A member of the RNA family "PyrR binding site" from Pseudoneobacillus rhizosphaerae, 118 nucleotides long.
It is annotated as a cis-regulatory element.
The base pairs follow the family's consensus structure, which is taken from published work.
RNA sequence: AAGUCCUUUAAGACAGUCCCGUGAGGCUGAGAAGGAAACGGUUUGGAAGAUUGGAUACUUAUAUCUUCUAUUAAAAUUACUCGUUUACCCUCUCAUCAAUGGUGAGAGGGUUUUUUAU
Numbered sequence: 001a002a003g004u005c006c007u008u009u010a011a012g013a014c015a016g017u018c019c020c021g022u023g024a025g026g027c028u029g030a031g032a033a034g035g036a037a038a039c040g041g042u043u044u045g046g047a048a049g050a051u052u053g054g055a056u057a058c059u060u061a062u063a064u065c066u067u068c069u070a071u072u073a074a075a076a077u078u079a080c081u082c083g084u085u086u087a088c089c090c091u092c093u094c095a096u097c098a099a100u101g102g103u104g105a106g107a108g109g110g111u112u113u114u115u116u117a118u
Stems, first nucleotide, its partner, number of pairs: 004036006014029005044075001047072002050069001053066005087111011
Dot-bracket structure: ...((((((....(((((......))))).)))))).......(..((.(..(((((....)))))..).))..)...........(((((((((((...))))))))))).......